[Rfam]
RNA sequence: GCAGGACUAAUACCAAAAUUCUUAUUUUGUCAAGAAGGCGGGUAUUAGUCCUGCAUUU
Numbered sequence: 001g002c003a004g005g006a007c008u009a010a011u012a013c014c015a016a017a018a019u020u021c022u023u024a025u026u027u028u029g030u031c032a033a034g035a036a037g038g039c040g041g042g043u044a045u046u047a048g049u050c051c052u053g054c055a056u057u058u
Base pairs, nucleotide, nucleotide: 001054002053003052004051005050006049007048008047009046010045011044012043013042014041019036020035021034022033023032